[Rfam]
Shown here is a 68-nucleotide RNA sequence from Paraburkholderia sp. DHOC27, a member of the family "Fluoride riboswitch aptamer (crcB RNA motif)". Rfam 15.1 lists 2,293 matches to the family in 1,982 species. A search with the family's covariance model found it, with a score of 55 bits.
RNA sequence: UCGUGUAACGGAGAUGGCAUUCCUCCCAUAACCGCCGGCAGCAGCCGGCUAAUGAUGCCUACGCGUUC
Numbered sequence: 001u002c003g004u005g006u007a008a009c010g011g012a013g014a015u016g017g018c019a020u021u022c023c024u025c026c027c028a029u030a031a032c033c034g035c036c037g038g039c040a041g042c043a044g045c046c047g048g049c050u051a052a053u054g055a056u057g058c059c060u061a062c063g064c065g066u067u068c
Stems, first nucleotide, its partner, number of pairs: 010026004016059006034049006